[Rfam]
RNA sequence: CAGGCUGGACAGGCAGUCGCUGCGUAUCGCCGCAAGGCAUACGGGGAGGAAAGUCCGGGCUCCGCAGGGCGGAAUGCCGGCUAACGGCCGGGCGCGGCAACGCGACGGAAAGUGGAACAGAGAGCAGAACCGCCGAUGGCCGUCUGAAAAGGCGGCACAGGUAAGGGUGAAAAGGUGCGGUAAGAGCGCACCGUGCCCCUGGCAACAGGGCGCAGCAGGCCAAACCCCAUUCGGAGCAAGACCAAACAGAACGCAUUGACGCGGCCCGCCGAGCGUUCGGGUAGGUUGCUGGAGCGUAUCAGCAAUGAUGCGCCUAGAGGAAUGACUGUCCGACGACAGAACCCGGCUUAUCGUUCGACCUGUAUG
Dot-bracket structure: ((((.(((((((((((((.((.(((((...........))))).))....[[[.[[[[[((((...[[[[.((((((((((.....)))))(((((....)))).)((...((((..............(((((..((.(.............).))..)))..)).......((((((.......))))))(((((((((....))))).))).)...))..)))))))))))))...((((.....((((((......((.]]]]))...)))))).....))))......((((((((....))))))))..........)))))))...........]]]]]]]].).))))).))))....
Notes
Shown here is a 366-nucleotide sequence from Neisseria sp. oral taxon 014, a member of the family "Bacterial RNase P class A". Rfam's curators write: Ribonuclease P (RNase P) is a ubiquitous endoribonuclease, found in archaea, bacteria and eukarya as well as chloroplasts and mitochondria. Pairs were carried over by alignment from the consensus structure, which is taken from published work. NCBI's taxonomy places the organism under Bacteria, Pseudomonadati, Pseudomonadota, Neisseria, Neisseria sp. oral taxon 014. The family's RNA type in Rfam is ribozyme. Its family is annotated with dimeric ribonuclease P complex, tRNA processing and ribonuclease P activity in the Gene Ontology.